Shown here is an 87-nucleotide sequence from Homoserinimonas hongtaonis, a member of the family "Glycine riboswitch aptamer". The organism belongs to Homoserinimonas, within Bacteria. It scores 68 bits against the family's covariance model. Rfam describes the family as follows. This family represents the bacterial glycine riboswitch. Pairs were carried over by alignment from the consensus structure.
[Rfam]
RNA sequence: UCAGGCGAUGCGGGAGAGCCCGAUUAACGGGCACCGAAGGAGCAAUCCUCUCCAGAAUCUCUCAGGUACGCGUACCGCAUCGAAUAG
Numbered sequence: 001u002c003a004g005g006c007g008a009u010g011c012g013g014g015a016g017a018g019c020c021c022g023a024u025u026a027a028c029g030g031g032c033a034c035c036g037a038a039g040g041a042g043c044a045a046u047c048c049u050c051u052c053c054a055g056a057a058u059c060u061c062u063c064a065g066g067u068a069c070g071c072g073u074a075c076c077g078c079a080u081c082g083a084a085u086a087g
Stems, first nucleotide, its partner, number of pairs: 006082008019031004033067003036063002040061003046056002